[Rfam]
RNA sequence: GGCCUGGUCGGAAACCAGGCCCAAAAAAG
Numbered sequence: 001g002g003c004c005u006g007g008u009c010g011g012a013a014a015c016c017a018g019g020c021c022c023a024a025a026a027a028a029g
Stems, first nucleotide, its partner, number of pairs: 001021008

This 29-nucleotide sequence from Acanthosepion pharaonis belongs to the Rfam family "L31-Coriobacteria ribosomal protein leader". The organism belongs to Acanthosepion, within Eukaryota. The family's RNA type in Rfam is cis-regulatory leader. The family's consensus secondary structure is taken from published work.